[Rfam]
About this RNA
The family of this 299-nucleotide RNA from Affinibrenneria salicis is "Soft rot Enterobacteriaceae Rev 39 5'UTR". From bacteria cultured under starvation conditions.
RNA sequence: AAGUAUUGUCAUUCACGGUGUGACUAUGGUAACUCUGUAGGCAUCAUUCGAUUACUGAUUAACGAACUGCCGAUUUAUGAAAGCGCUCGCCCUUGUGAUUCGCCUGGUCCUAAUUAACGUGGUGGUGAUUAUUAUCCCACCGUGCGGGGCUGCACUUGGACGAAGAAUGGCUUAAAAAUCGAGCCGAAUUCAAGAAAACCCCCGCACCGCAAGGUCGGGGGUUUUUUAUUGGUUAAAGCAAUAACGCGAGGAAGCAUUAAAAUGCACAACAGAGAACAAUGUUGUUAUUCCCGUAAGAC
Numbered sequence: 001a002a003g004u005a006u007u008g009u010c011a012u013u014c015a016c017g018g019u020g021u022g023a024c025u026a027u028g029g030u031a032a033c034u035c036u037g038u039a040g041g042c043a044u045c046a047u048u049c050g051a052u053u054a055c056u057g058a059u060u061a062a063c064g065a066a067c068u069g070c071c072g073a074u075u076u077a078u079g080a081a082a083g084c085g086c087u088c089g090c091c092c093u094u095g096u097g098a099u100u101c102g103c104c105u106g107g108u109c110c111u112a113a114u115u116a117a118c119g120u121g122g123u124g125g126u127g128a129u130u131a132u133u134a135u136c137c138c139a140c141c142g143u144g145c146g147g148g149g150c151u152g153c154a155c156u157u158g159g160a161c162g163a164a165g166a167a168u169g170g171c172u173u174a175a176a177a178a179u180c181g182a183g184c185c186g187a188a189u190u191c192a193a194g195a196a197a198a199c200c201c202c203c204g205c206a207c208c209g210c211a212a213g214g215u216c217g218g219g220g221g222u223u224u225u226u227u228a229u230u231g232g233u234u235a236a237a238g239c240a241a242u243a244a245c246g247c248g249a250g251g252a253a254g255c256a257u258u259a260a261a262a263u264g265c266a267c268a269a270c271a272g273a274g275a276a277c278a279a280u281g282u283u284g285u286u287a288u289u290c291c292c293g294u295a296a297g298a299c
Base pairs, nucleotide, nucleotide: 006032007031008030009029010028011027012026037074038073040071041070042069044065045064047062048058049057086251087250091246093243097239099237100236102234104232105231106230107229109119111117121141122140123139124138125137127136128135129134142161143160145158146157147156148155162191163190164189169185170184171183172182173181193227194226195225196224197223198222199221200220201219202218203217204216206215207214208213253286254285255284256283258281259280263273

It is annotated as a cis-regulatory element. Lineage of the source: Bacteria > Pseudomonadati > Pseudomonadota > Gammaproteobacteria > Affinibrenneria. A reference for the family is Kwenda et al. (2016), "Discovery and profiling of small RNAs responsive to stress conditions in the plant pathogen Pectobacterium atrosepticum", BMC Genomics. Its family is annotated with cellular response to starvation in the Gene Ontology.